[Rfam]
RNA sequence: GAGCUGUGAUGAUAUCUGCGCCUCUUGUGGCGGUAGGGUCCGCCGCUCUUGUCUGAUCAAUUCGGUUGAGAUUGUGGCGCUGCUGAGCUC
Numbered sequence: 001g002a003g004c005u006g007u008g009a010u011g012a013u014a015u016c017u018g019c020g021c022c023u024c025u026u027g028u029g030g031c032g033g034u035a036g037g038g039u040c041c042g043c044c045g046c047u048c049u050u051g052u053c054u055g056a057u058c059a060a061u062u063c064g065g066u067u068g069a070g071a072u073u074g075u076g077g078c079g080c081u082g083c084u085g086a087g088c089u090c
Stems, first nucleotide, its partner, number of pairs: 001090004
RNA: small nucleolar RNA snoR114